[Rfam]
RNA: U11 spliceosomal RNA
RNA sequence: UUAAAGGGCCGGUUGGGUAAUUAUGCCACACUCACCUUCUAUUGGUGAGUGUUAUAUUGCUAUCAAGACAUAUGGUAGACAUAAUUUUUAUAAAUCAUAGGGUUGGGUCAUUAAGCCGACCCUUCA
Number, nucleotide and partner (000 for none) at each position: 001u000002u000003a000004a000005a000006g000007g000008g080009c000010c078011g000012g076013u000014u000015g000016g027017g026018u025019a024020a000021u000022u000023a000024u019025g018026c017027c016028a000029c051030a050031c049032u048033c047034a046035c045036c044037u000038u000039c000040u000041a000042u000043u000044g036045g035046u034047g033048a032049g031050u030051g029052u075053u074054a073055u072056a071057u070058u000059g000060c000061u000062a000063u000064c000065a000066a000067g000068a000069c000070a057071u056072a055073u054074g053075g052076u012077a000078g010079a000080c008081a000082u000083a000084a000085u000086u000087u000088u000089u000090a000091u000092a000093a000094a000095u000096c000097a000098u000099a123100g122101g121102g120103u119104u118105g117106g116107g000108u115109c000110a000111u000112u000113a000114a000115g108116c106117c105118g104119a103120c102121c101122c100123u099124u000125c000126a000